[Rfam]
RNA sequence: CCACCAAGAUGAAUUCACCUGAACUCUCUCUUUCUGCAUAAACUGUGUAGAAACUUAAUAUUCUGAGUGGC
Number, nucleotide and partner (000 for none) at each position: 001c070002c069003a068004c067005c000006a000007a000008g000009a000010u000011g000012a000013a000014u000015u000016c000017a000018c000019c000020u000021g000022a000023a000024c000025u000026c000027u000028c000029u000030c000031u000032u000033u000034c000035u000036g000037c000038a000039u000040a000041a000042a000043c000044u000045g000046u000047g000048u000049a000050g000051a000052a000053a000054c000055u000056u000057a000058a000059u000060a000061u000062u000063c000064u000065g000066a000067g004068u003069g002070g001071c000
Shown here is a 71-nucleotide RNA sequence from Callorhinchus milii, a member of the family "Small nucleolar RNA SNORD26".
The family's consensus secondary structure was predicted with PFOLD.
Lineage of the source: Eukaryota > Eumetazoa > Chondrichthyes > Holocephali > Callorhinchus.
Its Rfam clan is "SNORD26 clan".
It scores 54 bits against the family's covariance model.
By type it is a C/D-box small nucleolar RNA.